The record is a 35-nucleotide sequence, which matches "DUF805b RNA" in Rfam.
It is annotated as a cis-regulatory element.
Rfam's curators put it in the seed alignment.
The base pairs follow the family's consensus structure, which is taken from published work.
RNA sequence: AUGACGGGUUCCGAAAAGUCAUAAUAGAGUAGGAA
Numbered sequence: 001a002u003g004a005c006g007g008g009u010u011c012c013g014a015a016a017a018g019u020c021a022u023a024a025u026a027g028a029g030u031a032g033g034a035a
Base pairs, nucleotide, nucleotide: 002021003020004019005018010034011033012032